[Rfam]
Overview: sucC RNA: a 67-nucleotide RNA sequence from Pseudomonas matsuisoli. Taxonomically the source falls in Pseudomonas (Bacteria, Pseudomonadota, Gammaproteobacteria, Pseudomonadales).
RNA sequence: AUCACAGGUGGCGCGGCAUAUCCGCAGCGCCGAAAUGCGCAAUACCUAAACGAAGACGGUAGAUAAG
Numbered sequence: 001a002u003c004a005c006a007g008g009u010g011g012c013g014c015g016g017c018a019u020a021u022c023c024g025c026a027g028c029g030c031c032g033a034a035a036u037g038c039g040c041a042a043u044a045c046c047u048a049a050a051c052g053a054a055g056a057c058g059g060u061a062g063a064u065a066a067g
Stems, first nucleotide, its partner, number of pairs: 009032006016025002